[Rfam]
RNA sequence: CGGCCCGCCCCGUCUGGAAGACUAGUGAUUUUGUUGUUGUCUCCCAGGUCCAGCAACAAGUCCCAGUCUGCCGCACGGUGCGGGCCC
Number, nucleotide and partner (000 for none) at each position: 001c000002g086003g085004c084005c083006c082007g081008c080009c000010c078011c077012g076013u075014c000015u073016g072017g071018a000019a069020g068021a067022c066023u065024a000025g064026u000027g062028a061029u060030u059031u058032u000033g057034u056035u055036g054037u053038u052039g000040u000041c000042u000043c000044c000045c000046a000047g000048g000049u000050c000051c000052a038053g037054c036055a035056a034057c033058a031059a030060g029061u028062c027063c000064c025065a023066g022067u021068c020069u019070g000071c017072c016073g015074c000075a013076c012077g011078g010079u000080g008081c007082g006083g005084g004085c003086c002087c000
Rfam assigns this 87-nucleotide sequence from Phyllostomus discolor to the family "mir-7 microRNA precursor family".
This family represents the microRNA (miRNA) precursor mir-7.
Lineage of the source: Eukaryota > Opisthokonta > Teleostomi > Phyllostomidae > Phyllostomus.
On this family, see Lagos-Quintana et al., Science 2001: "Identification of novel genes coding for small expressed RNAs".